[Rfam]
RNA sequence: AAAGGAGCAAUAAUCAUUUUCUUGUUUUAUCAGGAGGGUGUUAUUGCUCCAUUCUUU
Numbered sequence: 001a002a003a004g005g006a007g008c009a010a011u012a013a014u015c016a017u018u019u020u021c022u023u024g025u026u027u028u029a030u031c032a033g034g035a036g037g038g039u040g041u042u043a044u045u046g047c048u049c050c051a052u053u054c055u056u057u
Stems, first nucleotide, its partner, number of pairs: 001053002004050011019036006
This 57-nucleotide RNA sequence from Capsicum annuum belongs to the Rfam family "Plastid-psbA-3 3UTR RNA". A search with the family's covariance model found it, with a score of 63 bits. Rfam's curators write: Plastid psbA-3 is a non-coding RNA (ncRNA) present in plastids. It was identified in inverted repeat sequences in the 3 prime untranslate region (3UTR) of photosystem II quinone-binding protein (psbA). The family's RNA type in Rfam is cis-regulatory element. For this family Rfam cites "Retrograde signaling in plants: A critical review focusing on the GUN pathway and beyond" (Richter et al., Plant Commun, 2023). The source organism's lineage runs through Eukaryota, Solanales, Solanaceae, Capsiceae and Capsicum. The base pairs follow the family's consensus structure, which was predicted with LocARNA.